This 157-nucleotide RNA from Populus tomentosa belongs to the Rfam family "MIR2912 microRNA precursor family".
Rfam links the family to the GO terms miRNA-mediated post-transcriptional gene silencing and RISC complex.
RNA sequence: UCUAGAACUCAAGAUAUGGGCUGAACACUACACAGUGUCUAGGCUGCAAGACAGAUUCGGACUUCUCCGUUGUUUCUAUAAUUUGGACUUGAAAAUGGUCUUCUUAGAUCUUGGUGUCCACAUGAAAGUUGUAGGCCCAUGUCUCACCAAAUCUUUG
Numbered sequence: 001u002c003u004a005g006a007a008c009u010c011a012a013g014a015u016a017u018g019g020g021c022u023g024a025a026c027a028c029u030a031c032a033c034a035g036u037g038u039c040u041a042g043g044c045u046g047c048a049a050g051a052c053a054g055a056u057u058c059g060g061a062c063u064u065c066u067c068c069g070u071u072g073u074u075u076c077u078a079u080a081a082u083u084u085g086g087a088c089u090u091g092a093a094a095a096u097g098g099u100c101u102u103c104u105u106a107g108a109u110c111u112u113g114g115u116g117u118c119c120a121c122a123u124g125a126a127a128g129u130u131g132u133a134g135g136c137c138c139a140u141g142u143c144u145c146a147c148c149a150a151a152u153c154u155u156u157g
Stems, first nucleotide, its partner, number of pairs: 003157004009149001012144009021134003025130001027129003035123003042118002048112004054105002059100002062098002072088003